Rfam assigns this 230-nucleotide sequence from Miscanthus lutarioriparius to the family "MIR6217 microRNA precursor family". The family's consensus secondary structure was predicted with RNAalifold. The family has 2 seed sequences and 2,266 matches in Rfam 15.1. A search with the family's covariance model found it, with a score of 112 bits. Taxonomically the source falls in Miscanthus (Eukaryota, Streptophyta, Embryophyta, Panicoideae).

RNA sequence: UAUAUAAUAACUUAUUCUGUGGUCACUUUGAACUUUGAGUUACGAUAAUUACUAUACUAAUUUAUGAGAUUAUAGUAACUCCUUAUUAAGUGAUUUAUUAUAACGUUAUGGUAAAUAUCCCCAUAUGUUAUAGUAACACAACUAUCGUAAAUAUAUAUUCACUUUACCGUACAUUAAUAUAUAAAAUUAUCCUAAUAAAGGUGGCUAUAUAAUAAGCUGGUUAGUAAAUA
Numbered sequence: 001u002a003u004a005u006a007a008u009a010a011c012u013u014a015u016u017c018u019g020u021g022g023u024c025a026c027u028u029u030g031a032a033c034u035u036u037g038a039g040u041u042a043c044g045a046u047a048a049u050u051a052c053u054a055u056a057c058u059a060a061u062u063u064a065u066g067a068g069a070u071u072a073u074a075g076u077a078a079c080u081c082c083u084u085a086u087u088a089a090g091u092g093a094u095u096u097a098u099u100a101u102a103a104c105g106u107u108a109u110g111g112u113a114a115a116u117a118u119c120c121c122c123a124u125a126u127g128u129u130a131u132a133g134u135a136a137c138a139c140a141a142c143u144a145u146c147g148u149a150a151a152u153a154u155a156u157a158u159u160c161a162c163u164u165u166a167c168c169g170u171a172c173a174u175u176a177a178u179a180u181a182u183a184a185a186a187u188u189a190u191c192c193u194a195a196u197a198a199a200g201g202u203g204g205c206u207a208u209a210u211a212a213u214a215a216g217c218u219g220g221u222u223a224g225u226a227a228a229u230a
Base pairs, nucleotide, nucleotide: 001226002225003224006221008219009218011216012215013214014213015212016211018209019208020207021206022205023204024203025202026201027200028199029198040195041194042193044191045190046189047188048187049186050185053181054180055179056178058176059175060174061173063171064170065169068168070166072164075160077158083150084149085148086147090145091144092143094141095140096135097134098133099132100131101130102129103128104127105126106125110120111119